RNA: Group II catalytic intron D1-D4-3
RNA sequence: UCUGCCGCGAGGCGGGAUCUGAAGGCAGCUGUAGGCAAACUUCCCGGCCCGACGAGCAGGAACUGCAUACGAGGAAGGCACGCCUGGGUGAGGGGCGCCAAAAGAGCUGAAACCCGAUACUACCCGGAAGCCGUGAGUGCAAAUGCGGCGGGGGCACCGAGGUUCACGAU
Numbered sequence: 001u002c003u004g005c006c007g008c009g010a011g012g013c014g015g016g017a018u019c020u021g022a023a024g025g026c027a028g029c030u031g032u033a034g035g036c037a038a039a040c041u042u043c044c045c046g047g048c049c050c051g052a053c054g055a056g057c058a059g060g061a062a063c064u065g066c067a068u069a070c071g072a073g074g075a076a077g078g079c080a081c082g083c084c085u086g087g088g089u090g091a092g093g094g095g096c097g098c099c100a101a102a103a104g105a106g107c108u109g110a111a112a113c114c115c116g117a118u119a120c121u122a123c124c125c126g127g128a129a130g131c132c133g134u135g136a137g138u139g140c141a142a143a144u145g146c147g148g149c150g151g152g153g154g155c156a157c158c159g160a161g162g163u164u165c166a167c168g169a170u
Stems, first nucleotide, its partner, number of pairs: 001016006028170001030168003035163002041156001043154002048152004063148006074140001076138001079135004084130001086115004092108001094107001